[Rfam]
RNA: ylbH leader
RNA sequence: GUAAAAAAAAGCCUGCAGAAAAACUGCAGGCCCUUUUUGAUUCUAUAUUCGAGUGAAUCAAAAAGGCAAAGGGAGAGGAGAAACCGGAAAGGACUUAUGGGGAAACGUAAGUCUUUUCCGUCU
Numbered sequence: 001g002u003a004a005a006a007a008a009a010a011g012c013c014u015g016c017a018g019a020a021a022a023a024c025u026g027c028a029g030g031c032c033c034u035u036u037u038u039g040a041u042u043c044u045a046u047a048u049u050c051g052a053g054u055g056a057a058u059c060a061a062a063a064a065g066g067c068a069a070a071g072g073g074a075g076a077g078g079a080g081a082a083a084c085c086g087g088a089a090a091g092g093a094c095u096u097a098u099g100g101g102g103a104a105a106c107g108u109a110a111g112u113c114u115u116u117u118c119c120g121u122c123u
Stems, first nucleotide, its partner, number of pairs: 011031008032073005037061006085120004089115003093112005